[Rfam]
RNA sequence: CCCCUCCGGCCUGAGAUUUGGCUUAACCCUUGAACAUAGUGGGUGAGCAAAGUUUCAGGUGGGUUGGUUA
Numbered sequence: 001c002c003c004c005u006c007c008g009g010c011c012u013g014a015g016a017u018u019u020g021g022c023u024u025a026a027c028c029c030u031u032g033a034a035c036a037u038a039g040u041g042g043g044u045g046a047g048c049a050a051a052g053u054u055u056c057a058g059g060u061g062g063g064u065u066g067g068u069u070a
Base pairs, nucleotide, nucleotide: 003067004066007063009060010059011058012057013056014055016053017052018051019050022047023046024045025044027043028042029041
The family of this 70-nucleotide RNA from Owenia fusiformis is "mir-87 microRNA precursor family". A search with the family's covariance model found it, with a score of 49 bits. NCBI's taxonomy places the organism under Eukaryota, Opisthokonta, Bilateria, Canalipalpata, Owenia. The literature on the family includes a 2003 paper in Dev Biol by Sempere et al., "Temporal regulation of microRNA expression in Drosophila melanogaster mediated by hormonal signals and broad-Complex gene activity".